[Rfam]
RNA: Small nucleolar RNA R11/Z151
Organism: Actinidia chinensis
RNA sequence: GGGCUUAUGAUGAUAAUUCAAAAUAAUCUUAGCGGAUUUCAGUGAGAUUGCAUGAUCAAUGAUCUGAUUGUUACACACACUGAAGCCC
Numbered sequence: 001g002g003g004c005u006u007a008u009g010a011u012g013a014u015a016a017u018u019c020a021a022a023a024u025a026a027u028c029u030u031a032g033c034g035g036a037u038u039u040c041a042g043u044g045a046g047a048u049u050g051c052a053u054g055a056u057c058a059a060u061g062a063u064c065u066g067a068u069u070g071u072u073a074c075a076c077a078c079a080c081u082g083a084a085g086c087c088c
Stems, first nucleotide, its partner, number of pairs: 001088005